This 96-nucleotide sequence from Caldithrix abyssi belongs to the Rfam family "t44 RNA". On this family, see Tjaden et al., Nucleic Acids Res 2002: "Transcriptome analysis of Escherichia coli using high-density oligonucleotide probe arrays". Taxonomically the source falls in Caldithrix abyssi (Bacteria, Pseudomonadati, Calditrichales, Caldithrix). The family's RNA type in Rfam is small RNA.

RNA sequence: AAAUUUAUUUAUUAAAUUCACACACCAUUCGUUUCCUUUCCGGGUGUCUGUCUGUUUCGACGGAUUGGGAAGGUUAUAGGGUGGUGGAGGUUUAAC
Numbered sequence: 001a002a003a004u005u006u007a008u009u010u011a012u013u014a015a016a017u018u019c020a021c022a023c024a025c026c027a028u029u030c031g032u033u034u035c036c037u038u039u040c041c042g043g044g045u046g047u048c049u050g051u052c053u054g055u056u057u058c059g060a061c062g063g064a065u066u067g068g069g070a071a072g073g074u075u076a077u078a079g080g081g082u083g084g085u086g087g088a089g090g091u092u093u094a095a096c
Base pairs, nucleotide, nucleotide: 023086024085025084026083027082028081029080030079035073036072037071038070039069040068041067046065047064048063049062050061